RNA sequence: CUGUUGAAUCAAUUGCAUAGUUGGUUCAACAGUUUCUCCUCUAUUUCUCCUUUGUAGACUUGGCGCACAUUUGAUUAAAUGUGCGCAUUUUU
Numbered sequence: 001c002u003g004u005u006g007a008a009u010c011a012a013u014u015g016c017a018u019a020g021u022u023g024g025u026u027c028a029a030c031a032g033u034u035u036c037u038c039c040u041c042u043a044u045u046u047c048u049c050c051u052u053u054g055u056a057g058a059c060u061u062g063g064c065g066c067a068c069a070u071u072u073g074a075u076u077a078a079a080u081g082u083g084c085g086c087a088u089u090u091u092u
Stems, first nucleotide, its partner, number of pairs: 003030009040058005063086010

The record is a 92-nucleotide RNA from Vitreoscilla sp. C1, which matches "Neisseria metabolic switch regulator b (RcoF1/NgncR163)" in Rfam.
Its family is annotated with mRNA binding, protein binding and tricarboxylic acid cycle in the Gene Ontology.
Rfam describes the family as follows. Sibling sRNA described and independently named in three publications. NgncR163 is N. gonorrhoeae while the others are N. meningitidis RNAs. RcoF1 stands for: RNA regulating colonization factor 1.
Rfam classes the family as a small RNA.
The source organism's lineage runs through Bacteria, Pseudomonadati, Neisseriales, Neisseriaceae and Vitreoscilla.
For this family Rfam cites "The sibling sRNAs NgncR_162 and NgncR_163 of Neisseria gonorrhoeae participate in the expression control of metabolic, transport and regulatory proteins" (Bauer et al., Microbiology, 2017).
The match comes from Rfam's covariance-model search (97 bits).